[Rfam]
Shown here is a 109-nucleotide RNA from Hydrogenophaga taeniospiralis, a member of the family "TPP riboswitch aptamer (THI element)".
Its family is annotated with thiamine pyrophosphate binding in the Gene Ontology.
The base pairs follow the family's consensus structure, which is taken from published work.
RNA sequence: CAGCUUCACCGGGGGUGCCGGGCCCGCAGUACAGCGGGCAACGGCUGAGAAAUACCCCUCUCACCUGAUCUGGAUCGUGCCAGCGUAGGGAGCGUGACCAGCCGGCCGC
Numbered sequence: 001c002a003g004c005u006u007c008a009c010c011g012g013g014g015g016u017g018c019c020g021g022g023c024c025c026g027c028a029g030u031a032c033a034g035c036g037g038g039c040a041a042c043g044g045c046u047g048a049g050a051a052a053u054a055c056c057c058c059u060c061u062c063a064c065c066u067g068a069u070c071u072g073g074a075u076c077g078u079g080c081c082a083g084c085g086u087a088g089g090g091a092g093c094g095u096g097a098c099c100a101g102c103c104g105g106c107c108g109c
Base pairs, nucleotide, nucleotide: 006097007096008095009094011058012057013056014055016052017045018044019043020042064089065088066087067086070083071082072081073080